[Rfam]
RNA sequence: AUGGUAAAAUGAAUCACGUUUCGUAUAGUUCUGCUGUUAUGGUGCAGAUGUUUCUAGCUCGAACCGUUAUUUCGAGACUACGGAAUCAGCUUUUUGUAAU
Numbered sequence: 001a002u003g004g005u006a007a008a009a010u011g012a013a014u015c016a017c018g019u020u021u022c023g024u025a026u027a028g029u030u031c032u033g034c035u036g037u038u039a040u041g042g043u044g045c046a047g048a049u050g051u052u053u054c055u056a057g058c059u060c061g062a063a064c065c066g067u068u069a070u071u072u073c074g075a076g077a078c079u080a081c082g083g084a085a086u087c088a089g090c091u092u093u094u095u096g097u098a099a100u
Stems, first nucleotide, its partner, number of pairs: 018086008030048005058076006
RNA: Purine riboswitch aptamer
Organism: Amedibacterium intestinale